[Rfam]
RNA sequence: AGAAUCCACUAGGGGUGCCCGAGUAUGGGCUGAGACGAGACGAGCAAGUCUUGAUCCCUUUGAACCUGAUCUGGGUUAUGCCAGCGUAGGAAAGUGGGAAUAGGCCCUC
Numbered sequence: 001a002g003a004a005u006c007c008a009c010u011a012g013g014g015g016u017g018c019c020c021g022a023g024u025a026u027g028g029g030c031u032g033a034g035a036c037g038a039g040a041c042g043a044g045c046a047a048g049u050c051u052u053g054a055u056c057c058c059u060u061u062g063a064a065c066c067u068g069a070u071c072u073g074g075g076u077u078a079u080g081c082c083a084g085c086g087u088a089g090g091a092a093a094g095u096g097g098g099a100a101u102a103g104g105c106c107c108u109c
Base pairs, nucleotide, nucleotide: 006097007096008095009094010093011059012058013057014056016053017030018029019028020027021026037052038051039050040049041048065090066089067088068087071084072083073082074081
Dot-bracket structure: .....(((((((((.((((((....)))))......(((((......))))))..)))).....((((..((((......))))..))))..)))))............